Background
This 216-nucleotide RNA from Marinilabilia rubra belongs to the Rfam family "Group II catalytic intron D1-D4-6". Lineage of the source: Bacteria > Pseudomonadati > Bacteroidia > Marinilabiliaceae > Marinilabilia. The base pairs follow the family's consensus structure. Group II introns are found in rRNA, tRNA and mRNA of organelles in fungi, plants and protists, and also in mRNA in bacteria. For this family Rfam cites "Group II introns: structure and catalytic versatility of large natural ribozymes" (Lehmann and Schmidt, Crit Rev Biochem Mol Biol, 2003).
[Rfam]
RNA sequence: UCAAUCCUACCCGGGAAAGCUUAACCAGCACCCGGAACCAAGUGUUGCGUCGUCGUCAGAAAUGGCGGCACGAAGCGUACACAGGAAAUGCAAAAGCCGUGUAACAAAGCCUCGAAAAGAAAGCUAAUGUUAGGGUUUUCACAUUGCUGCUUGUGGGAACAGAAGUGCAGGAUCCGCCAUGGUAAGGAGACUGUGCCCGACCGGGGUCGCCGAGCA
Number, nucleotide and partner (000 for none) at each position: 001u000002c000003a000004a000005u000006c000007c000008u000009a000010c000011c035012c034013g033014g032015g031016a000017a000018a000019g029020c028021u027022u185023a000024a183025c182026c000027a021028g020029c019030a000031c015032c014033c013034g012035g011036a000037a000038c085039c084040a000041a000042g082043u081044g080045u079046u077047g076048c072049g071050u070051c000052g000053u068054c067055g066056u065057c064058a063059g000060a000061a000062a000063u058064g057065g056066c055067g054068g053069c000070a050071c049072g048073a000074a000075g000076c047077g046078u000079a045080c044081a043082c042083a000084g039085g038086a000087a000088a000089u000090g000091c000092a000093a000094a000095a000096g000097c000098c000099g000100u000101g000102u000103a000104a000105c000106a000107a000108a000109g207110c206111c205112u204113c203114g202115a000116a000117a000118a000119g000120a000121a000122a000123g000124c000125u000126a000127a000128u000129g201130u200131u199132a000133g198134g197135g160136u159137u158138u000139u000140c155141a154142c153143a152144u000145u000146g000147c000148u000149g000150c000151u000152u143153g142154u141155g140156g000157g000158a137159a136160c135161a000162g000163a000164a000165g196166u195167g194168c193169a192170g191171g000172a000173u188174c187175c186176g000177c000178c000179a000180u000181g000182g025183u024184a000185a022186g175187g174188a173189g000190a000191c170192u169193g168194u167195g166196c165197c134198c133199g131200a130201c129202c114203g113204g112205g111206g110207u109208c000209g000210c000211c000212g000213a000214g000215c000216a000